RNA sequence: CCAUCCCUUCCGCAAACCCGGUGAAAGCCGGGGACGCAAAGCCUCCGGCCUACAGCCGGGCCUGCUGACCCCAGCGGCCCGACCACGGUAGCGGGGCUGCCAAG
Numbered sequence: 001c002c003a004u005c006c007c008u009u010c011c012g013c014a015a016a017c018c019c020g021g022u023g024a025a026a027g028c029c030g031g032g033g034a035c036g037c038a039a040a041g042c043c044u045c046c047g048g049c050c051u052a053c054a055g056c057c058g059g060g061c062c063u064g065c066u067g068a069c070c071c072c073a074g075c076g077g078c079c080c081g082a083c084c085a086c087g088g089u090a091g092c093g094g095g096g097c098u099g100c101c102a103a104g
Base pairs, nucleotide, nucleotide: 012037013036017032018031019030020029021028022027040098041097042096043095045094046093047092048089049088050087055083057081058080059079060078061077062076
Dot-bracket structure: ...........((...((((((....))))))...))..((((.((((((....(.((((((.............)))))).)...)))..)))))))......

Rfam assigns this 104-nucleotide sequence from Inhella crocodyli to the family "c-di-GMP-I riboswitch aptamer". It scores 60 bits against the family's covariance model.